[Rfam]
RNA sequence: CCCAGUGUUAUAUCAAACGAAAGUAGUCUGGACGAAAUCGGACACGUUGAAUAGGGAA
Number, nucleotide and partner (000 for none) at each position: 001c055002c054003c000004a052005g045006u044007g043008u042009u041010a000011u000012a000013u000014c000015a000016a000017a000018c040019g039020a038021a000022a000023g000024u000025a000026g033027u032028c000029u000030g000031g000032a027033c026034g000035a000036a000037a000038u020039c019040g018041g009042a008043c007044a006045c005046g000047u000048u000049g000050a000051a000052u004053a000054g002055g001056g000057a000058a000
RAGATH-18 RNA: a 58-nucleotide RNA.
It is annotated as a small RNA.
Rfam's curators put it in the seed alignment.
The family's consensus secondary structure is taken from published work.